[Rfam]
RNA sequence: UGCCUAUGAAGCGGCUGCUAUGUUGGUAUGUUGCCGUGGAGGUGCUAUUAGGGUUGUGUGGAAUCCAAGUUCCAACUUAGGUUUAAUCAAAAAGCUGAAAACAAAAACACUCAAA
Numbered sequence: 001u002g003c004c005u006a007u008g009a010a011g012c013g014g015c016u017g018c019u020a021u022g023u024u025g026g027u028a029u030g031u032u033g034c035c036g037u038g039g040a041g042g043u044g045c046u047a048u049u050a051g052g053g054u055u056g057u058g059u060g061g062a063a064u065c066c067a068a069g070u071u072c073c074a075a076c077u078u079a080g081g082u083u084u085a086a087u088c089a090a091a092a093a094g095c096u097g098a099a100a101a102c103a104a105a106a107a108c109a110c111u112c113a114a115a
Stems, first nucleotide, its partner, number of pairs: 001044004011037005017031002023075004058110003080096004

A member of the RNA family "drum RNA", 115 nucleotides long. From the family's description: Firmicutes, Bacteroidetes (1 example), Proteobacteria (2 examples), Spirochaetes (2 examples). It is annotated as a small RNA. Pairs were carried over by alignment from the consensus structure, which is taken from published work.